[Rfam]
RNA sequence: GUUUGCGGGGAGUUUGUUAAAAGAAACUGGCAUGGUGAAUCCCCCUGUGCGGAGGGGCAAUCAGCGAGUAGGUAUAUGGGAUAAUCGCGGAUUCAGGUGCUGGUACUGAAUUUACCGGGAGGCACCCGGCACCAUGCACUUCAAUAGAUUCUCUCCACAUUAUGGAUAUUCUUUCAGAAUAUCCCACGCAG
Numbered sequence: 001g002u003u004u005g006c007g008g009g010g011a012g013u014u015u016g017u018u019a020a021a022a023g024a025a026a027c028u029g030g031c032a033u034g035g036u037g038a039a040u041c042c043c044c045c046u047g048u049g050c051g052g053a054g055g056g057g058c059a060a061u062c063a064g065c066g067a068g069u070a071g072g073u074a075u076a077u078g079g080g081a082u083a084a085u086c087g088c089g090g091a092u093u094c095a096g097g098u099g100c101u102g103g104u105a106c107u108g109a110a111u112u113u114a115c116c117g118g119g120a121g122g123c124a125c126c127c128g129g130c131a132c133c134a135u136g137c138a139c140u141u142c143a144a145u146a147g148a149u150u151c152u153c154u155c156c157a158c159a160u161u162a163u164g165g166a167u168a169u170u171c172u173u174u175c176a177g178a179a180u181a182u183c184c185c186a187c188g189c190a191g
Base pairs, nucleotide, nucleotide: 014144015143016142030137031136032135033134034133035132036131037130042057043056044055045054046053078088080086089113090112091111092110094108095107096106115129116128117127118126119125153191154190156188164184165183166182167181168180169179170178
Dot-bracket structure: .............(((.............((((((((....(((((......)))))....................(.(.....).)((((.(((.........))).)))).(((((.....)))))))))))))....)))........((.(.......(((((((.......)))))))...).))